This 68-nucleotide RNA sequence from Peribacillus faecalis belongs to the Rfam family "Bacillaceae-1 RNA". Pairs were carried over by alignment from the consensus structure, which is taken from published work. It is annotated as a small RNA. The match comes from Rfam's covariance-model search (37 bits).
RNA sequence: CAAGUAAGAACAGCGACUAAGAGCGCUACCUCCGCAUAUCUUCGUCGCUGUGACUCUCAUCAUGAGAG
Dot-bracket structure: ..........(((((((..........................)))))))...(((((.....)))))